RNA sequence: AGGUCGGCAGAUCACCCAGGCGUCGCCAGCCCGUUCGCGGGCCGCUAAACCUGCCA
Numbered sequence: 001a002g003g004u005c006g007g008c009a010g011a012u013c014a015c016c017c018a019g020g021c022g023u024c025g026c027c028a029g030c031c032c033g034u035u036c037g038c039g040g041g042c043c044g045c046u047a048a049a050c051c052u053g054c055c056a
Stems, first nucleotide, its partner, number of pairs: 002016003029042004
COG3860 RNA: a 56-nucleotide RNA from Niveispirillum lacus. It is annotated as a cis-regulatory element. Taxonomically the source falls in Niveispirillum (Bacteria, Pseudomonadati, Pseudomonadota, Alphaproteobacteria).